[Rfam]
RNA sequence: GAUAGAAGACGAAAGACUAAGAGCGCCACAUCCUGUAGCAACGUCUUUCUGACCCGCAUCGUGCGGG
Numbered sequence: 001g002a003u004a005g006a007a008g009a010c011g012a013a014a015g016a017c018u019a020a021g022a023g024c025g026c027c028a029c030a031u032c033c034u035g036u037a038g039c040a041a042c043g044u045c046u047u048u049c050u051g052a053c054c055c056g057c058a059u060c061g062u063g064c065g066g067g
Base pairs, nucleotide, nucleotide: 011049012048013047014046015045016044017043025039026038028036029035053067054066055065056064057063

Description
This 67-nucleotide sequence from Bacillus salinus belongs to the Rfam family "Bacillaceae-1 RNA". By type it is a small RNA. The base pairs follow the family's consensus structure, which is taken from published work.